[Rfam]
RNA sequence: UGUCUAUGAUGAUAAAUCUAAGGCUUGUUUCUCAAAACAUUCGCAGUGGCCGCCUGAUUGCUUUCGCCUUUGCCGGGCUUGAGAGCACAUGUUGCUUAUCCUUCCUUGGAUGUCUGAGACU
Numbered sequence: 001u002g003u004c005u006a007u008g009a010u011g012a013u014a015a016a017u018c019u020a021a022g023g024c025u026u027g028u029u030u031c032u033c034a035a036a037a038c039a040u041u042c043g044c045a046g047u048g049g050c051c052g053c054c055u056g057a058u059u060g061c062u063u064u065c066g067c068c069u070u071u072g073c074c075g076g077g078c079u080u081g082a083g084a085g086c087a088c089a090u091g092u093u094g095c096u097u098a099u100c101c102u103u104c105c106u107u108g109g110a111u112g113u114c115u116g117a118g119a120c121u
Stems, first nucleotide, its partner, number of pairs: 002120003060086006
A member of the RNA family "Small nucleolar RNA SNORD14", 121 nucleotides long. Rfam 15.1 lists 4,559 matches to the family in 936 species. A reference for the family is Samarsky et al. (1996), "An essential domain in Saccharomyces cerevisiae U14 snoRNA is absent in vertebrates, but conserved in other yeasts", Nucleic Acids Res. By type it is a C/D-box small nucleolar RNA. Rfam describes the family as follows. U14 small nucleolar RNA (U14 snoRNA) is required for early cleavages of eukaryotic precursor rRNAs. Gene Ontology terms of the family: nucleolus and RNA processing.